[Rfam]
RNA: Y RNA
RNA sequence: GGCUAGUCCAAGUGUCGUUGUGUCUACAACUAAUUGAUCACAACCAGUUACAGAUUCCUUUGUUCCUUCUCCACUCCCACUGCUUCACUUGAAUAGUCUUAA
Numbered sequence: 001g002g003c004u005a006g007u008c009c010a011a012g013u014g015u016c017g018u019u020g021u022g023u024c025u026a027c028a029a030c031u032a033a034u035u036g037a038u039c040a041c042a043a044c045c046a047g048u049u050a051c052a053g054a055u056u057c058c059u060u061u062g063u064u065c066c067u068u069c070u071c072c073a074c075u076c077c078c079a080c081u082g083c084u085u086c087a088c089u090u091g092a093a094u095a096g097u098c099u100u101a102a
Stems, first nucleotide, its partner, number of pairs: 001098005007092002010090002014086001017080002020077001022076001028064003032060002